[Rfam]
RNA: Small nucleolar RNA ACA64
RNA sequence: ACAGUCUGAAAAUCCCUUGUGGUCUCCUGUGGCCCCUGGUGCCAUAACUGUGCCCACAGCAGAGGGAGCAUUAAACUCAUUGCCUACGGGAAAGUGUGGGGAGUGAUACCCAUGUUCCUAGAAUC
Numbered sequence: 001a002c003a004g005u006c007u008g009a010a011a012a013u014c015c016c017u018u019g020u021g022g023u024c025u026c027c028u029g030u031g032g033c034c035c036c037u038g039g040u041g042c043c044a045u046a047a048c049u050g051u052g053c054c055c056a057c058a059g060c061a062g063a064g065g066g067a068g069c070a071u072u073a074a075a076c077u078c079a080u081u082g083c084c085u086a087c088g089g090g091a092a093a094g095u096g097u098g099g100g101g102a103g104u105g106a107u108a109c110c111c112a113u114g115u116u117c118c119u120a121g122a123a124u125c
Stems, first nucleotide, its partner, number of pairs: 006050001008048001010045001014041001016039001021034004065118001067116005077106005085098003